Record summary
This 105-nucleotide sequence from Allobosea thiooxidans belongs to the Rfam family "Repression of heat shock gene expression (ROSE) element". Gene Ontology terms of the family: response to temperature stimulus and regulation of translation. This family represents a 5' UTR cis-regulatory element found in heat shock mRNAs and is known as the ROSE (repression of heat shock gene expression) element. It scores 58 bits against the family's covariance model. The family's RNA type in Rfam is RNA thermoregulator. NCBI's taxonomy places the organism under Bacteria, Pseudomonadota, Hyphomicrobiales, Alloboseaceae, Allobosea.
RNA sequence: CCGAUCGCCUCCUAACGGGAUCGGCCGGUCGAGCCGGCGUCGGUUGGACCCUGGCGAGACCUGACUUGUACCCAUGUUGCUCAAUGGAGGAUGUGGUUAUGAGAA
Dot-bracket structure: ((((((.((.......))))))))........................................((((((.(((((((.(((....)))))))))).))))))..